RNA sequence: GUCCACGGAGGAUAGAGGAAGCCGUCACCACGCGGCUGAUCGAGAAAUUCUCG
Numbered sequence: 001g002u003c004c005a006c007g008g009a010g011g012a013u014a015g016a017g018g019a020a021g022c023c024g025u026c027a028c029c030a031c032g033c034g035g036c037u038g039a040u041c042g043a044g045a046a047a048u049u050c051u052c053g
Stems, first nucleotide, its partner, number of pairs: 020037006
RNA: leuA-Halobacteria RNA